[Rfam]
A member of the RNA family "Small nucleolar RNA Z107/R87" from Spinacia oleracea, 113 nucleotides long. A search with the family's covariance model found it, with a score of 90 bits. Its family is annotated with nucleolus and RNA processing in the Gene Ontology. Taxonomically the source falls in Spinacia (Eukaryota, Spermatophyta, Mesangiospermae, Gunneridae). For this family Rfam cites "Identification of 66 box C/D snoRNAs in Arabidopsis thaliana: extensive gene duplications generated multiple isoforms predicting new ribosomal RNA 2'-O-methylation sites" (Barneche et al., J Mol Biol, 2001). The family's consensus secondary structure was predicted with RNAfold. Rfam 15.1 lists 783 matches to the family in 221 species.

RNA sequence: AAUUACAGUGACGACUCACAAAAUUCAAGCUCAACAGACCGUAUUGCAGGAAUUUCUCACUCUAUUGAGGAUGAUUUUUUUGCGUGUCGACACACCCGCUGAACUGAGUAAUU
Dot-bracket structure: ((((((.....................................................................................................))))))
Numbered sequence: 001a002a003u004u005a006c007a008g009u010g011a012c013g014a015c016u017c018a019c020a021a022a023a024u025u026c027a028a029g030c031u032c033a034a035c036a037g038a039c040c041g042u043a044u045u046g047c048a049g050g051a052a053u054u055u056c057u058c059a060c061u062c063u064a065u066u067g068a069g070g071a072u073g074a075u076u077u078u079u080u081u082g083c084g085u086g087u088c089g090a091c092a093c094a095c096c097c098g099c100u101g102a103a104c105u106g107a108g109u110a111a112u113u
Stems, first nucleotide, its partner, number of pairs: 001113006